The family of this 110-nucleotide RNA sequence from Caenorhabditis latens is "SL2 RNA". Taxonomically the source falls in Caenorhabditis (Eukaryota, Bilateria, Ecdysozoa, Rhabditidae). This family represents SL2 RNA. SL2 RNA is involved in trans splicing in lower eukaryotes. Trans-splicing is a form of RNA processing. The acquisition of a spliced leader from a SL RNA is a intra-molecular reaction which precisely joins exons derived from separately transcribed RNAs. Pairs were carried over by alignment from the consensus structure, which is taken from published work. The match comes from Rfam's covariance-model search (66 bits).
RNA sequence: GUGUUUAACCCAGUUACUCAAGGAACACUGGAGUCUCGACCAUUUGAAAAAGUGUAUUGAACAACUCUCACUUUUGAAACCGUUCUGUUGGGGUUAUCCGGUAAAGCAAC
Numbered sequence: 001g002u003g004u005u006u007a008a009c010c011c012a013g014u015u016a017c018u019c020a021a022g023g024a025a026c027a028c029u030g031g032a033g034u035c036u037c038g039a040c041c042a043u044u045u046g047a048a049a050a051a052g053u054g055u056a057u058u059g060a061a062c063a064a065c066u067c068u069c070a071c072u073u074u075u076g077a078a079a080c081c082g083u084u085c086u087g088u089u090g091g092g093g094u095u096a097u098c099c100g101g102u103a104a105a106g107c108a109a110c
Base pairs, nucleotide, nucleotide: 008034009031010030013028014027018023037059038058039057041054042053043052044051045050084108086106088104089103090102092099093098